[Rfam]
RNA sequence: UGGUCAAGUGUAAUGUAUGUAGUCCAAUCUAUUGAAGUACUAGCACACCAUCUCUAGUGAGAUGAUGUGGUUGAGUAGUUCAAUACAUUGGACUACAUAUAUUACUUUUGAUCAA
Numbered sequence: 001u002g003g004u005c006a007a008g009u010g011u012a013a014u015g016u017a018u019g020u021a022g023u024c025c026a027a028u029c030u031a032u033u034g035a036a037g038u039a040c041u042a043g044c045a046c047a048c049c050a051u052c053u054c055u056a057g058u059g060a061g062a063u064g065a066u067g068u069g070g071u072u073g074a075g076u077a078g079u080u081c082a083a084u085a086c087a088u089u090g091g092a093c094u095a096c097a098u099a100u101a102u103u104a105c106u107u108u109u110g111a112u113c114a115a
Base pairs, nucleotide, nucleotide: 001114002113003112004111005110006109007108008107010105011104012103013102014101015100016099017098018097019096020095021094022093023092024091025090026089027088028087030085031084032083033082034081035080036079038077039076040075041074044069045068046067047066049064050063051062052061053060054059
Rfam assigns this 115-nucleotide RNA sequence from Brassica napus to the family "MIR860 microRNA precursor family". The source organism's lineage runs through Eukaryota, Tracheophyta, rosids, Brassicaceae and Brassica. Pairs were carried over by alignment from the consensus structure, which was predicted with RNAalifold.